[Rfam]
RNA sequence: GGUUAUAACCCAGUAUCAAAAGGUACUAAGGGCUUCUGACCAGCCUUCAAGGUUGUGUCAAAACCUUAAUUUUUGGAUAGCCUUUCCGGGGAAUCCGGGAGGGCAAC
Numbered sequence: 001g002g003u004u005a006u007a008a009c010c011c012a013g014u015a016u017c018a019a020a021a022g023g024u025a026c027u028a029a030g031g032g033c034u035u036c037u038g039a040c041c042a043g044c045c046u047u048c049a050a051g052g053u054u055g056u057g058u059c060a061a062a063a064c065c066u067u068a069a070u071u072u073u074u075g076g077a078u079a080g081c082c083u084u085u086c087c088g089g090g091g092a093a094u095c096c097g098g099g100a101g102g103g104c105a106a107c
Stems, first nucleotide, its partner, number of pairs: 007035002009031002013026001015024003037060004041055005084103003090096002

Shown here is a 107-nucleotide sequence from Haemonchus placei, a member of the family "SL2 RNA". The base pairs follow the family's consensus structure, which is taken from published work. From the family's description: This family represents SL2 RNA. SL2 RNA is involved in trans splicing in lower eukaryotes. Trans-splicing is a form of RNA processing. The acquisition of a spliced leader from a SL RNA is a intra-molecular reaction which precisely joins exons derived from separately transcribed RNAs. Approximately 25% of C. elegans genes are organised into polycistronic transcription units and the presence of SL2 on an mRNA is an indication the the gene is in an operon. Its Rfam clan is "SL clan".